[Rfam]
RNA sequence: GGGAGUAGAUAGGUGCUGGUGUGCCUACUGGACUUCAAAUCCAGCUUCGGGUGUUAAGAGCAUCCGGGGUGGGUUCGAUUCCCACAUACUCCC
Numbered sequence: 001g002g003g004a005g006u007a008g009a010u011a012g013g014u015g016c017u018g019g020u021g022u023g024c025c026u027a028c029u030g031g032a033c034u035u036c037a038a039a040u041c042c043a044g045c046u047u048c049g050g051g052u053g054u055u056a057a058g059a060g061c062a063u064c065c066g067g068g069g070u071g072g073g074u075u076c077g078a079u080u081c082c083c084a085c086a087u088a089c090u091c092c093c
Stems, first nucleotide, its partner, number of pairs: 001093007008085001011026006028044005047067005070084004

This 93-nucleotide RNA sequence from Clostridium sp. 'deep sea' belongs to the Rfam family "Selenocysteine transfer RNA". A reference for the family is Lowe and Eddy (1997), "tRNAscan-SE: a program for improved detection of transfer RNA genes in genomic sequence", Nucleic Acids Res. Rfam 15.1 lists 4,211 matches to the family in 3,344 species.